[Rfam]
RNA sequence: CCUCCCGUUCUUGGUGGGCAUGGGACAUGUGGUCUCACUGCGUGUUCUGUACGGAGGAGAGGGAAAGGGCUCCAGCCCACUCAGCAUCACACUUCUGGGUGCCUCCGGCUUCUGCCCAAGAGUUCUAUACUCAAGCUCUGGGACACAG
Numbered sequence: 001c002c003u004c005c006c007g008u009u010c011u012u013g014g015u016g017g018g019c020a021u022g023g024g025a026c027a028u029g030u031g032g033u034c035u036c037a038c039u040g041c042g043u044g045u046u047c048u049g050u051a052c053g054g055a056g057g058a059g060a061g062g063g064a065a066a067g068g069g070c071u072c073c074a075g076c077c078c079a080c081u082c083a084g085c086a087u088c089a090c091a092c093u094u095c096u097g098g099g100u101g102c103c104u105c106c107g108g109c110u111u112c113u114g115c116c117c118a119a120g121a122g123u124u125c126u127a128u129a130c131u132c133a134a135g136c137u138c139u140g141g142g143a144c145a146c147a148g
Stems, first nucleotide, its partner, number of pairs: 001057005015044002018041003023036002082140003087135001102122001104120001107117002
RNA: Small nucleolar RNA SNORA57
Organism: Otolemur garnettii